[Rfam]
Nucleotides: 131
Stems, first nucleotide, its partner, number of pairs: 028055005034043003091116004096111005
Number, partner (000 for none) and nucleotide at each position: 001000a002000u003000a004000a005000u006000a007000u008000u009000a010000a011000a012000u013000a014000u015000u016000a017000a018000g019000c020000c021000g022000a023000a024000g025000a026000c027000a028055g029054u030053a031052u032051g033000u034043g035042g036041g037000g038000c039000a040000a041036c042035c043034c044000u045000u046000a047000a048000u049000u050000u051032c052031a053030u054029a055028c056000c057000g058000a059000g060000g061000a062000u063000u064000g065000a066000a067000a068000u069000g070000u071000a072000u073000a074000c075000u076000a077000g078000a079000c080000u081000a082000u083000a084000c085000a086000c087000a088000c089000u090000c091116c092115c093114u094113c095000u096111a097110u098109g099108u100107c101000u102000g103000c104000g105000g106000u107100g108099a109098c110097a111096u112000u113094g114093a115092g116091g117000u118000u119000u120000u121000u122000u123000u124000a125000u126000u127000g128000a129000a130000a131000a
This 131-nucleotide sequence from Alloiococcus otitis belongs to the Rfam family "Ribosomal protein L10 leader". This family is a putative r-protein leader autoregulatory structure found in B. subtilis and other low-GC Gram-positive bacteria. It is located in the 5' untranslated regions of mRNAs encoding ribosomal proteins L10 and L12 (rplJ-rplL). A Rho-independent transcription terminator structure that is probably involved in regulation is included at the 3' end. By type it is a cis-regulatory leader. The family's consensus secondary structure was predicted with CMfinder. A search with the family's covariance model found it, with a score of 85 bits.